The record is a 62-nucleotide sequence, which matches "eL15-Euryarchaeota ribosomal protein leader" in Rfam. Rfam classes the family as a cis-regulatory leader. A reference for the family is Eckert and Weinberg (2020), "Discovery of 20 novel ribosomal leader candidates in bacteria and archaea", BMC Microbiol.
[Rfam]
RNA sequence: CCUGUCACAGGACAGGACGGGAUGUGAACCCCGAGACCGACUCGCACGGUUUGAACCACUCG
Number, nucleotide and partner (000 for none) at each position: 001c016002c015003u014004g013005u012006c000007a000008c000009a000010g000011g000012a005013c004014a003015g002016g001017a000018c000019g057020g056021g000022a000023u000024g000025u000026g052027a051028a050029c049030c048031c000032c000033g000034a000035g000036a000037c000038c000039g000040a000041c000042u000043c000044g000045c000046a000047c000048g030049g029050u028051u027052u026053g000054a000055a000056c020057c019058a000059c000060u000061c000062g000